[Rfam]
RNA: c-di-AMP riboswitch aptamer (ydaO/yuaA leader)
RNA sequence: UAGCGCCACACGUUUAAUCCUUUAGUAGGAGUGGGGGACCCGAUCAUUUGGGGUGAAUUUUUCUGUUCCCGUGCGAACCGAAAGACGGACAUCUCUUCGUCCGAACCCGUCAGCUAACCUCAUCAACGUGAAGAGAGUCAUG
Dot-bracket structure: ..........((((...(((.......)))((((((....((......))(((.....((((..................))))..((((........))))...))).........)))))).))))..............